Rfam assigns this 80-nucleotide RNA sequence from Muraenolepis orangiensis to the family "Small nucleolar RNA SNORD74". It is annotated as a C/D-box small nucleolar RNA. Lineage of the source: Eukaryota > Eumetazoa > Actinopteri > Eurypterygia > Muraenolepis. Its family is annotated with nucleolus and RNA processing in the Gene Ontology.

RNA sequence: CAUGCAUACUAAUGAUGAUGUGAAUGUUGGUAGGGACAUCUGAUUAAAAGUGAGGAAACGCCAACUUUUCUGAACACAUG
Numbered sequence: 001c002a003u004g005c006a007u008a009c010u011a012a013u014g015a016u017g018a019u020g021u022g023a024a025u026g027u028u029g030g031u032a033g034g035g036a037c038a039u040c041u042g043a044u045u046a047a048a049a050g051u052g053a054g055g056a057a058a059c060g061c062c063a064a065c066u067u068u069u070c071u072g073a074a075c076a077c078a079u080g
Stems, first nucleotide, its partner, number of pairs: 001080004